RNA sequence: AACCUGGUCCGGGCUCUUCUGACGAGUAUUCUCCGGCAUGCUCUCGAUGUCGGACCACGUUC
Numbered sequence: 001a002a003c004c005u006g007g008u009c010c011g012g013g014c015u016c017u018u019c020u021g022a023c024g025a026g027u028a029u030u031c032u033c034c035g036g037c038a039u040g041c042u043c044u045c046g047a048u049g050u051c052g053g054a055c056c057a058c059g060u061u062c
Stems, first nucleotide, its partner, number of pairs: 006056007024043006
RNA: terC RNA